[Rfam]
RNA sequence: UCAUCAAGCAUUGCACCCAGAGUCUGGUCUACCAGACAUUGUACCUGGAGCUUAUUUCUUUUUAUAAUUAAAACUC
Numbered sequence: 001u002c003a004u005c006a007a008g009c010a011u012u013g014c015a016c017c018c019a020g021a022g023u024c025u026g027g028u029c030u031a032c033c034a035g036a037c038a039u040u041g042u043a044c045c046u047g048g049a050g051c052u053u054a055u056u057u058c059u060u061u062u063u064a065u066a067a068u069u070a071a072a073a074c075u076c
Stems, first nucleotide, its partner, number of pairs: 006053004017048004022037005
Dot-bracket structure: .....((((.......((((.(((((......))))).......)))).)))).......................

The record is a 76-nucleotide sequence from Larimichthys crocea, which matches "U1A polyadenylation inhibition element (PIE)" in Rfam. Its family is annotated with regulation of mRNA polyadenylation in the Gene Ontology. About the family: This family represents the U1A polyadenylation inhibition element (PIE). The organism belongs to Larimichthys, within Eukaryota. The family's RNA type in Rfam is cis-regulatory element. A reference for the family is Clerte and Hall (2004), "Global and Local Dynamics of the U1A Polyadenylation Inhibition Element (PIE) RNA and PIE RNA-U1A Complexes", Biochemistry. It scores 67 bits against the family's covariance model.